[Rfam]
RNA sequence: CUCUUAUCGAGAGUGGUGGAGGGACUGGCCCGAUGAAACCCGGCAACCCCCUUUGUGGGAAGGUGCCAAAUCCUGCAGAACUUUAAUGUGUUCUGGGAGAUAAGGG
Numbered sequence: 001c002u003c004u005u006a007u008c009g010a011g012a013g014u015g016g017u018g019g020a021g022g023g024a025c026u027g028g029c030c031c032g033a034u035g036a037a038a039c040c041c042g043g044c045a046a047c048c049c050c051c052u053u054u055g056u057g058g059g060a061a062g063g064u065g066c067c068a069a070a071u072c073c074u075g076c077a078g079a080a081c082u083u084u085a086a087u088g089u090g091u092u093c094u095g096g097g098a099g100a101u102a103a104g105g106g
Base pairs, nucleotide, nucleotide: 001106002105003104004103005102006101007100008099013041015040016039017038021031022030023029025075027073028072042067043066044065045064047063048062049059050058051057071098076095077094078093079092080091081090
RNA: SAM riboswitch aptamer (S box leader)